RNA sequence: GGUGAGGAUAGAGGAGCAAAGACCAUCAGUACGCUUACCGAGGAGUAUGGGAUCCGUUGACGUAUGCUGAAAGGGGAAUUUGCCGAAGCGAUGAAAGGCUCAUAACCGCCAUCGCUGGUUCUGCAUUGAAAAAAUGCUGGACUGUCAUAUAGGAAACUAUAUGGAGGGCUAUCUGACAC
Numbered sequence: 001g002g003u004g005a006g007g008a009u010a011g012a013g014g015a016g017c018a019a020a021g022a023c024c025a026u027c028a029g030u031a032c033g034c035u036u037a038c039c040g041a042g043g044a045g046u047a048u049g050g051g052a053u054c055c056g057u058u059g060a061c062g063u064a065u066g067c068u069g070a071a072a073g074g075g076g077a078a079u080u081u082g083c084c085g086a087a088g089c090g091a092u093g094a095a096a097g098g099c100u101c102a103u104a105a106c107c108g109c110c111a112u113c114g115c116u117g118g119u120u121c122u123g124c125a126u127u128g129a130a131a132a133a134a135u136g137c138u139g140g141a142c143u144g145u146c147a148u149a150u151a152g153g154a155a156a157c158u159a160u161a162u163g164g165a166g167g168g169c170u171a172u173c174u175g176a177c178a179c
Stems, first nucleotide, its partner, number of pairs: 006174006016083005023076002033067002036064003087116007097106001117143005123137005145164007
RNA: Lysine riboswitch aptamer
Organism: Planococcus massiliensis